[Rfam]
RNA sequence: ACAGGCAGAGAUAAAAACACAGCCUGGUUGGUAGUCCAGGCGUAUCCUCAGGGAUAUCAGUAACCUUCCUCCUUAGGUCGUCCGUUCUUUGCGGAAUAUUU
Numbered sequence: 001a002c003a004g005g006c007a008g009a010g011a012u013a014a015a016a017a018c019a020c021a022g023c024c025u026g027g028u029u030g031g032u033a034g035u036c037c038a039g040g041c042g043u044a045u046c047c048u049c050a051g052g053g054a055u056a057u058c059a060g061u062a063a064c065c066u067u068c069c070u071c072c073u074u075a076g077g078u079c080g081u082c083c084g085u086u087c088u089u090u091g092c093g094g095a096a097u098a099u100u101u
Base pairs, nucleotide, nucleotide: 005092006091007090008089009088010087011086022041023040024039025038026037027036042057043056044055045054046053047052068077069076070075

The family of this 101-nucleotide RNA from Lachnospiraceae bacterium OF09-33XD is "azaaromatic riboswitch aptamer (yjdF RNA)". The base pairs follow the family's consensus structure, which is taken from published work. The match comes from Rfam's covariance-model search (96 bits).